Shown here is a 75-nucleotide RNA from Streptomyces sp. Ag109_G2-6, a member of the family "ASpks TB sRNA".
RNA sequence: CUUCAGCGAGCCGAGCCACAGGGGGUUGCCGGCGGGGCGGCCCUGGCCGUAGGUCGCCAGCAGUGCCUGUGCCUC
Numbered sequence: 001c002u003u004c005a006g007c008g009a010g011c012c013g014a015g016c017c018a019c020a021g022g023g024g025g026u027u028g029c030c031g032g033c034g035g036g037g038c039g040g041c042c043c044u045g046g047c048c049g050u051a052g053g054u055c056g057c058c059a060g061c062a063g064u065g066c067c068u069g070u071g072c073c074u075c
Stems, first nucleotide, its partner, number of pairs: 014026001016024002032070002038065002043060003047056001049054001
The family's consensus secondary structure is taken from published work.